[Rfam]
RNA sequence: CGGCGAGGCUUCCUGUCCGUUAUCCAUGUGAGCACUCGAUUAUGCUGUGGGAGGGGAGACAUUCCUCCAAUCCUUAGACGCCUGUCGUCAAGAGUAUGAUGCGAGGAUGGGUUAAAUGCCUG
Numbered sequence: 001c002g003g004c005g006a007g008g009c010u011u012c013c014u015g016u017c018c019g020u021u022a023u024c025c026a027u028g029u030g031a032g033c034a035c036u037c038g039a040u041u042a043u044g045c046u047g048u049g050g051g052a053g054g055g056g057a058g059a060c061a062u063u064c065c066u067c068c069a070a071u072c073c074u075u076a077g078a079c080g081c082c083u084g085u086c087g088u089c090a091a092g093a094g095u096a097u098g099a100u101g102c103g104a105g106g107a108u109g110g111g112u113u114a115a116a117u118g119c120c121u122g
Stems, first nucleotide, its partner, number of pairs: 001019003008033004013028001035105004039100008049074004054065003077089004108122005

Overview
A member of the RNA family "epsC RNA" from Bacillus sp. 7884-1, 122 nucleotides long. It scores 86 bits against the family's covariance model. The base pairs follow the family's consensus structure, which is taken from published work. Rfam classes the family as a cis-regulatory element.